[Rfam]
RNA sequence: CUCUUGUCGCCUACCUGCAACUCGAUUGAACUUGGGUAUACAAACCAAGAUAAAGCCUCUCAUUAGCCGCGCGAACCGCUGUAACGGAAGAACCUAGUAAUACAUUAACCUUAUUUGUCUAUGCUUCCUAGAAGAAAGGGGCCAAUUUGGCCCCUUUCU
Number, nucleotide and partner (000 for none) at each position: 001c000002u088003c087004u000005u086006g085007u000008c000009g082010c081011c000012u000013a000014c000015c000016u073017g072018c071019a000020a000021c066022u065023c000024g000025a064026u000027u062028g061029a060030a000031c000032u000033u000034g000035g000036g000037u000038a000039u000040a000041c000042a000043a000044a000045c000046c000047a000048a000049g000050a000051u000052a000053a000054a000055g000056c000057c000058u000059c000060u029061c028062a027063u000064u025065a022066g021067c000068c000069g000070c000071g018072c017073g016074a000075a000076c000077c000078g000079c000080u000081g010082u009083a000084a000085c006086g005087g003088a002089a000090g000091a000092a000093c000094c000095u000096a000097g112098u000099a000100a000101u000102a000103c000104a000105u000106u000107a000108a000109c000110c000111u000112u097113a000114u000115u000116u000117g000118u000119c000120u000121a000122u000123g000124c000125u000126u000127c000128c000129u000130a000131g000132a000133a000134g000135a000136a000137a000138g154139g153140g152141g151142c150143c149144a000145a000146u000147u000148u000149g143150g142151c141152c140153c139154c138155u000156u000157u000158c000159u000
RNA: SraG RNA
Organism: Serratia sp. DD3